[Rfam]
RNA sequence: UGGCUGUAGCCAAAUCAGAUAAUUGAGAAGUUUACUGGCCCGCUGUUUUGAGAUUUCUCUCCGUCGACAGAUCUGCUUACCAAGCUUCUCACAUUG
Numbered sequence: 001u002g003g004c005u006g007u008a009g010c011c012a013a014a015u016c017a018g019a020u021a022a023u024u025g026a027g028a029a030g031u032u033u034a035c036u037g038g039c040c041c042g043c044u045g046u047u048u049u050g051a052g053a054u055u056u057c058u059c060u061c062c063g064u065c066g067a068c069a070g071a072u073c074u075g076c077u078u079a080c081c082a083a084g085c086u087u088c089u090c091a092c093a094u095u096g
Base pairs, nucleotide, nucleotide: 025090026089027088028087029086030085031084032083037077038076039075042072044070045068046067047066

Small nucleolar RNA snoR109: a 96-nucleotide RNA sequence from Prunus yedoensis. Lineage of the source: Eukaryota > Euphyllophyta > eudicotyledons > Gunneridae > Prunus yedoensis. The family's RNA type in Rfam is H/ACA-box small nucleolar RNA. On this family, see Marker et al., Curr Biol 2002: "Experimental RNomics: identification of 140 candidates for small non-messenger RNAs in the plant Arabidopsis thaliana". Rfam 15.1 lists 680 matches to the family in 220 species. Pairs were carried over by alignment from the consensus structure, which was predicted with WAR. Its family is annotated with RNA processing and nucleolus in the Gene Ontology.